A member of the RNA family "General Flavivirus exoribonuclease-resistant RNA element" from Orthoflavivirus bagazaense, 81 nucleotides long. The literature on the family includes a 2015 paper in PLoS Pathog by Villordo et al., "Dengue virus RNA structure specialization facilitates host adaptation". The organism belongs to Orthoflavivirus bagazaense, within Viruses. About the family: The exoribonuclease-resistant RNA elements (xrRNA) are described throughout all groups of flaviviruses. Usually, each virus harbors two xrRNAs, xrRNA1 and xrRNA2, in the beginning of the 3' UTR. The formation of these stem-loops, especially xrRNA1, is vital to ensure resistance against XRN1 activity.
Nucleotides: 081
Base pairs, nucleotide, nucleotide: 005060006059007056008055009054010053011052012026013025014024015023030047031046032045066080067079068078069077070076
Number, partner (000 for none) and nucleotide at each position: 001000g002000a003000g004000a005060g006059u007056c008055a009054g010053g011052c012026c013025g014024g015023a016000u017000u018000a019000c020000a021000u022000g023015u024014c025013c026012g027000c028000c029000a030047c031046c032045g033000g034000a035000u036000g037000u038000u039000g040000g041000a042000u043000g044000a045032c046031g047030g048000u049000g050000c051000u052011g053010c054009c055008u056007g057000c058000a059006g060005u061000c062000c063000a064000a065000c066080c067079c068078c069077a070076g071000g072000a073000g074000g075000a076070c077069u078068g079067g080066g081000u